Shown here is a 76-nucleotide RNA sequence from Prunus dulcis, a member of the family "Small nucleolar RNA Z105". A reference for the family is Chen et al. (2003), "The high diversity of snoRNAs in plants: identification and comparative study of 120 snoRNA genes from Oryza sativa", Nucleic Acids Res. A search with the family's covariance model found it, with a score of 56 bits. The base pairs follow the family's consensus structure, which was predicted with CMfinder.
RNA sequence: GGGGCAUGAUGAGGAUAGUCUUGUAUUUGUCCGAUUAAUUUCGUGAUUGGAAUUACAAACCUCCUACUCAUUCUGA
Numbered sequence: 001g002g003g004g005c006a007u008g009a010u011g012a013g014g015a016u017a018g019u020c021u022u023g024u025a026u027u028u029g030u031c032c033g034a035u036u037a038a039u040u041u042c043g044u045g046a047u048u049g050g051a052a053u054u055a056c057a058a059a060c061c062u063c064c065u066a067c068u069c070a071u072u073c074u075g076a
Stems, first nucleotide, its partner, number of pairs: 006071004027051002031045001